Eukaryotic large subunit ribosomal RNA: a 421-nucleotide part of an RNA from Microbotryum intermedium. It scores 3356 bits against the family's covariance model.
RNA sequence: AGACCUCAGAUCAGGCAGGAUUACCCGCUGAACUUAAGCAUAUCAAUAAGCGGAGGAAAAGAAACUAACAAGGAUUCCCCUAGUAACGGCGAGUGAAGCGGGAAAAGCUCAAAUUUGUAAUCUGGCGCCUUCGGCGUCCGAGUUGUAAUCUCGAGAAGUAUUUUCCGCGCUGGACCGCACAUAAGUCUGUUGGAAUACAGCGUCAUAGUGGUGAGAACCCCGUAUAUGGUGCGGAUGCCCAGUGCUUUGUGAUAUACUUUCGAAGAGUCGAGUUGUUUGGGAAUGCAGCUCAAAUUGGGUGGUAAAUUCCAUCUAAAGCUAAAUACUGGCGAGAGACCGAUAGCGAACAAGUACCGUGAGGGAAAGAUGAAAAGCACUUUGGAAAGAGAGUUAACAGUACGUGAAAUUGUUGGAAGGGAAA
Numbered sequence: 001a002g003a004c005c006u007c008a009g010a011u012c013a014g015g016c017a018g019g020a021u022u023a024c025c026c027g028c029u030g031a032a033c034u035u036a037a038g039c040a041u042a043u044c045a046a047u048a049a050g051c052g053g054a055g056g057a058a059a060a061g062a063a064a065c066u067a068a069c070a071a072g073g074a075u076u077c078c079c080c081u082a083g084u085a086a087c088g089g090c091g092a093g094u095g096a097a098g099c100g101g102g103a104a105a106a107g108c109u110c111a112a113a114u115u116u117g118u119a120a121u122c123u124g125g126c127g128c129c130u131u132c133g134g135c136g137u138c139c140g141a142g143u144u145g146u147a148a149u150c151u152c153g154a155g156a157a158g159u160a161u162u163u164u165c166c167g168c169g170c171u172g173g174a175c176c177g178c179a180c181a182u183a184a185g186u187c188u189g190u191u192g193g194a195a196u197a198c199a200g201c202g203u204c205a206u207a208g209u210g211g212u213g214a215g216a217a218c219c220c221c222g223u224a225u226a227u228g229g230u231g232c233g234g235a236u237g238c239c240c241a242g243u244g245c246u247u248u249g250u251g252a253u254a255u256a257c258u259u260u261c262g263a264a265g266a267g268u269c270g271a272g273u274u275g276u277u278u279g280g281g282a283a284u285g286c287a288g289c290u291c292a293a294a295u296u297g298g299g300u301g302g303u304a305a306a307u308u309c310c311a312u313c314u315a316a317a318g319c320u321a322a323a324u325a326c327u328g329g330c331g332a333g334a335g336a337c338c339g340a341u342a343g344c345g346a347a348c349a350a351g352u353a354c355c356g357u358g359a360g361g362g363a364a365a366g367a368u369g370a371a372a373a374g375c376a377c378u379u380u381g382g383a384a385a386g387a388g389a390g391u392u393a394a395c396a397g398u399a400c401g402u403g404a405a406a407u408u409g410u411u412g413g414a415a416g417g418g419a420a421a
Stems, first nucleotide, its partner, number of pairs: 024055001025053005035042002065072002076103004086094002106320004113149003119143001121141002124138004155261002157258004162254001164252002167245007175234006185201001187200004204208001210220002270291007297314005354361002377388004